[Rfam]
RNA sequence: GACGAUAAAUCGUGGCGUCAAAUAGGCACAGCGGACCCGGGGGCAGUACCCGGCGGCUCCACCACAAACCCCGUUCAUUGAUGCCGGUAUCGCGGCGGACGGGGGUUCUGACGGGGCCGAACCAGGAUCGACGUGUGUUGAAAAACGCUUGCUUUCGUUCGGGCUGAGUAACCCGUUAAAGGCUCAAACUCACAAGUGCUAACGAUAACGAAGCACUCGCUCUCGCGGCAUAA
Numbered sequence: 001g002a003c004g005a006u007a008a009a010u011c012g013u014g015g016c017g018u019c020a021a022a023u024a025g026g027c028a029c030a031g032c033g034g035a036c037c038c039g040g041g042g043g044c045a046g047u048a049c050c051c052g053g054c055g056g057c058u059c060c061a062c063c064a065c066a067a068a069c070c071c072c073g074u075u076c077a078u079u080g081a082u083g084c085c086g087g088u089a090u091c092g093c094g095g096c097g098g099a100c101g102g103g104g105g106u107u108c109u110g111a112c113g114g115g116g117c118c119g120a121a122c123c124a125g126g127a128u129c130g131a132c133g134u135g136u137g138u139u140g141a142a143a144a145a146c147g148c149u150u151g152c153u154u155u156c157g158u159u160c161g162g163g164c165u166g167a168g169u170a171a172c173c174c175g176u177u178a179a180a181g182g183c184u185c186a187a188a189c190u191c192a193c194a195a196g197u198g199c200u201a202a203c204g205a206u207a208a209c210g211a212a213g214c215a216c217u218c219g220c221u222c223u224c225g226c227g228g229c230a231u232a233a
Base pairs, nucleotide, nucleotide: 001159002158003157004156005155015148016147017146018145027137028136029135031134032133033132037053038052039051040050041049054119055118056117057116058115059114060113160175161174162173163172

About this RNA:
permuted transfer-messenger RNA: a 233-nucleotide sequence from Sphingomonas lacunae. From the family's description: Bacterial tmRNA, also known as 10Sa RNA or SsrA, is named for its dual tRNA and mRNA-like properties. The source organism's lineage runs through Bacteria, Pseudomonadati, Alphaproteobacteria, Sphingomonadales and Sphingomonas. Rfam links the family to the GO term RNA catabolic process. The base pairs follow the family's consensus structure, which is taken from published work.